[Rfam]
RNA sequence: CACGAACAUUGCGACUGGCGGCACGAGGAUGGGAACGACCAUCGGGGAGCAGGCCGCGGAAGCCGACCGCCUGGGCGACCGCG
Numbered sequence: 001c002a003c004g005a006a007c008a009u010u011g012c013g014a015c016u017g018g019c020g021g022c023a024c025g026a027g028g029a030u031g032g033g034a035a036c037g038a039c040c041a042u043c044g045g046g047g048a049g050c051a052g053g054c055c056g057c058g059g060a061a062g063c064c065g066a067c068c069g070c071c072u073g074g075g076c077g078a079c080c081g082c083g
Base pairs, nucleotide, nucleotide: 003056004055009052010051011050012049015046016045017071018070019069020068021067029042030041031040032039062076063075064074
Shown here is an 83-nucleotide RNA from Catellatospora sp. IY07-71, a member of the family "ZMP/ZTP riboswitch aptamer (pfl RNA motif)". The base pairs follow the family's consensus structure, which is taken from published work. A search with the family's covariance model found it, with a score of 46 bits.